[Rfam]
RNA sequence: UUAAUGUUUCUUGCUCAAAUGAGUAUUCCAAAAGCAGUUGCCCUAAGCAACAAAGAACAUAUAUUUUUGAGUUGAAUCACUGUAUAUGAUCGAUGUUGCUGGUAUGCUACUGUUUCCGAGAUGCUCAUUUGGGCAAGUAAUAUUAG
Numbered sequence: 001u002u003a004a005u006g007u008u009u010c011u012u013g014c015u016c017a018a019a020u021g022a023g024u025a026u027u028c029c030a031a032a033a034g035c036a037g038u039u040g041c042c043c044u045a046a047g048c049a050a051c052a053a054a055g056a057a058c059a060u061a062u063a064u065u066u067u068u069g070a071g072u073u074g075a076a077u078c079a080c081u082g083u084a085u086a087u088g089a090u091c092g093a094u095g096u097u098g099c100u101g102g103u104a105u106g107c108u109a110c111u112g113u114u115u116c117c118g119a120g121a122u123g124c125u126c127a128u129u130u131g132g133g134c135a136a137g138u139a140a141u142a143u144u145a146g
Stems, first nucleotide, its partner, number of pairs: 004143005010137018029118001
RNA: MIR828 microRNA precursor family